[Rfam]
RNA sequence: UCGAUGGGUUCGGGUGACGAUAUGUUCCGAACCUGGUCAGGUCCGGAAGGAAGCAGCCAUAAGGAGCCUCUGCCGGGCACCCGUUCCCAUCGAGCG
Number, nucleotide and partner (000 for none) at each position: 001u000002c000003g000004a090005u089006g088007g087008g086009u000010u000011c083012g082013g081014g080015u077016g000017a000018c075019g074020a000021u072022a071023u000024g067025u066026u065027c064028c063029g000030a000031a000032c000033c000034u059035g058036g057037u056038c000039a000040g000041g000042u051043c050044c049045g000046g000047a000048a000049g044050g043051a042052a000053g000054c000055a000056g037057c036058c035059a034060u000061a000062a000063g028064g027065a026066g025067c024068c000069u000070c000071u022072g021073c000074c019075g018076g000077g015078c000079a000080c014081c013082c012083g011084u000085u000086c008087c007088c006089a005090u004091c000092g000093a000094g000095c000096g000

Description:
The record is a 96-nucleotide sequence from Collinsella stercoris, which matches "Bacterial small signal recognition particle RNA" in Rfam. Rfam's curators write: The signal recognition particle (SRP) is a universally conserved ribonucleoprotein involved in the co-translational targeting of proteins to membranes. A search with the family's covariance model found it, with a score of 58 bits. The source organism's lineage runs through Bacteria, Coriobacteriales, Coriobacteriaceae, Collinsella and Collinsella stercoris.